This 108-nucleotide sequence from Populus tomentosa belongs to the Rfam family "MIR480 microRNA precursor family". The organism belongs to Populus, within Eukaryota. On this family, see Lu et al., Plant Cell 2005: "Novel and mechanical stress-responsive MicroRNAs in Populus trichocarpa that are absent from Arabidopsis". The match comes from Rfam's covariance-model search (47 bits).

RNA sequence: UAAUUUAUUUGGAGCAGAUUUUUAUUUAGUUAUAUCAGAUUCAUACAUAAUUAUUCAGAAUCAUCUAUUAUUGUGUGAAUAAUAACUUUUAUAAAUUUUAAUUAAAAU
Numbered sequence: 001u002a003a004u005u006u007a008u009u010u011g012g013a014g015c016a017g018a019u020u021u022u023u024a025u026u027u028a029g030u031u032a033u034a035u036c037a038g039a040u041u042c043a044u045a046c047a048u049a050a051u052u053a054u055u056c057a058g059a060a061u062c063a064u065c066u067a068u069u070a071u072u073g074u075g076u077g078a079a080u081a082a083u084a085a086c087u088u089u090u091a092u093a094a095a096u097u098u099u100a101a102u103u104a105a106a107a108u
Stems, first nucleotide, its partner, number of pairs: 004106004008101002012098001014096001018092002027085001029083005